[Rfam]
RNA sequence: UUAUAUAUACGUAUGUAAUUGCAGGGUUCUAAGCUUUACGGGAAACUCAAUCGAAAGUUUUUAAAUAAGAAACUUUCGGUUGAGUUUCCCGUAAAGCUUAGAACCCCGCAAUACGCAUAUAUAAUAUAUAUAU
Dot-bracket structure: ..(((((((.((.(((((((((.((.(((((((((((((((...........................(((((((......)))))))))))))))))))))).)).))))).......)))))).)))))))
Shown here is a 133-nucleotide RNA sequence from Brassica rapa, a member of the family "MIR9555 microRNA precursor family". Pairs were carried over by alignment from the consensus structure, which was predicted with RNAalifold. The match comes from Rfam's covariance-model search (119 bits). Gene Ontology terms of the family: RISC complex and miRNA-mediated post-transcriptional gene silencing. Taxonomically the source falls in Brassica (Eukaryota, Viridiplantae, Streptophyta, Brassiceae).